[Rfam]
RNA sequence: AUCGUUCAACUCUUUACAGAGUCGGAAGUAAGCGAAAGCUGAAGGAACGCGCA
Dot-bracket structure: ..(((((.(((((....)))))..[.....(((....)))....)))))]...
About this RNA:
Glutamine riboswitch aptamer (glnA leader): a 53-nucleotide RNA sequence. A reference for the family is Ren et al. (2015), "Structural and Dynamic Basis for Low-Affinity, High-Selectivity Binding of L-Glutamine by the Glutamine Riboswitch", Cell Rep. The sequence is in the family's curated seed alignment. The base pairs follow the family's consensus structure, which is taken from published work.